[Rfam]
RNA: Mammalian CPEB3 ribozyme
RNA sequence: UCACAAGUUCAAGGCCAUAGCAGAAGCUUUCAUGGUGUGGCCUAUCAGAUUCAACAAAUCUGCAAAUUCUACU
Numbered sequence: 001u002c003a004c005a006a007g008u009u010c011a012a013g014g015c016c017a018u019a020g021c022a023g024a025a026g027c028u029u030u031c032a033u034g035g036u037g038u039g040g041c042c043u044a045u046c047a048g049a050u051u052c053a054a055c056a057a058a059u060c061u062g063c064a065a066a067u068u069c070u071a072c073u
Base pairs, nucleotide, nucleotide: 013042014041015040016039019073020072022070023069024068025067026038027037046062047061048060049059050058051057